[Rfam]
RNA sequence: AUUGCAGACCGGUGAUGAAACUGUUCUAGGAAGUGCCGUCUUAGAAACAAUGAUUAUGAAUUGGACGCUGAGGUCA
Dot-bracket structure: ......((((.............................................................)))).
The record is a 76-nucleotide RNA from Caenorhabditis elegans, which matches "Nematode snoRNA ceN22" in Rfam. Gene Ontology terms of the family: nucleolus and RNA processing. Pairs were carried over by alignment from the consensus structure. The family's RNA type in Rfam is C/D-box small nucleolar RNA.